A member of the RNA family "Glycine riboswitch aptamer" from Acidiferrobacter sp. SPIII_3, 92 nucleotides long. A search with the family's covariance model found it, with a score of 44 bits. Rfam links the family to the GO term glycine biosynthetic process.

RNA sequence: AGACAGCUUGCGGGAGAGGCCCGCCCCUCGGGGCCGGGCGCCGACGACGCAACCGCCCGGAAACGUACCGGCAAAAGGACCGCGAGGCUACU
Numbered sequence: 001a002g003a004c005a006g007c008u009u010g011c012g013g014g015a016g017a018g019g020c021c022c023g024c025c026c027c028u029c030g031g032g033g034c035c036g037g038g039c040g041c042c043g044a045c046g047a048c049g050c051a052a053c054c055g056c057c058c059g060g061a062a063a064c065g066u067a068c069c070g071g072c073a074a075a076a077g078g079a080c081c082g083c084g085a086g087g088c089u090a091c092u
Stems, first nucleotide, its partner, number of pairs: 007086007020038004040072003043068001047066003053060002

Pairs were carried over by alignment from the consensus structure.